[Rfam]
RNA sequence: AAAUUGUCCAAUAAAUAGGCUUCCCAAUUAUGUAAAAAGUGCGUAUCAUACGCACCUCAAAAUCAGCUGAAGCUGACAUAGAUUGAUUAAAGAGUACGGUUUUUUAGCCGUACUUUUUAUUUGGAUAGUUAUCUCGUUAAAUUUGUUUUAAAUUUAAUCACUUACGGAAGA
Numbered sequence: 001a002a003a004u005u006g007u008c009c010a011a012u013a014a015a016u017a018g019g020c021u022u023c024c025c026a027a028u029u030a031u032g033u034a035a036a037a038a039g040u041g042c043g044u045a046u047c048a049u050a051c052g053c054a055c056c057u058c059a060a061a062a063u064c065a066g067c068u069g070a071a072g073c074u075g076a077c078a079u080a081g082a083u084u085g086a087u088u089a090a091a092g093a094g095u096a097c098g099g100u101u102u103u104u105u106a107g108c109c110g111u112a113c114u115u116u117u118u119a120u121u122u123g124g125a126u127a128g129u130u131a132u133c134u135c136g137u138u139a140a141a142u143u144u145g146u147u148u149u150a151a152a153u154u155u156a157a158u159c160a161c162u163u164a165c166g167g168a169a170g171a
Stems, first nucleotide, its partner, number of pairs: 002130001004128008025085005030079004039055007064075004088119014136158010
Overview
Rfam assigns this 171-nucleotide sequence from Actinobacillus pleuropneumoniae to the family "Actinobacillus sRNA 11". On this family, see Rossi et al., RNA 2016: "A computational strategy for the search of regulatory small RNAs in Actinobacillus pleuropneumoniae". By type it is a small RNA. About the family: Arrc stands for Actinobacillus pleuropneumoniae Regulatory RNA Candidate. TargetRNA2 was used for the predictions. radA gene target may be involved in stress resistance. Pairs were carried over by alignment from the consensus structure, which was predicted with RNAfold. The organism belongs to Actinobacillus pleuropneumoniae serovar 5, within Bacteria.